[Rfam]
RNA sequence: GGAAGGGCUUUUCAUCCGGUGAUGGAUGCGGCCUUCAAAGCCGUAAGGGGCCGUGAGACGGUCUUUUAUGGGUUCGACUCCCAUGCUCUUCC
Numbered sequence: 001g002g003a004a005g006g007g008c009u010u011u012u013c014a015u016c017c018g019g020u021g022a023u024g025g026a027u028g029c030g031g032c033c034u035u036c037a038a039a040g041c042c043g044u045a046a047g048g049g050g051c052c053g054u055g056a057g058a059c060g061g062u063c064u065u066u067u068a069u070g071g072g073u074u075c076g077a078c079u080c081c082c083a084u085g086c087u088c089u090u091c092c
Stems, first nucleotide, its partner, number of pairs: 001092008011026006027045006047065005069083004
Dot-bracket structure: ((((((((..((((((....))))))((((((.......)))))).(((((.........)))))...((((.......)))).))))))))

A member of the RNA family "Selenocysteine transfer RNA" from Ditibartonella apis, 92 nucleotides long. Gene Ontology term of the family: triplet codon-amino acid adaptor activity. The match comes from Rfam's covariance-model search (71 bits). The base pairs follow the family's consensus structure, which is taken from published work.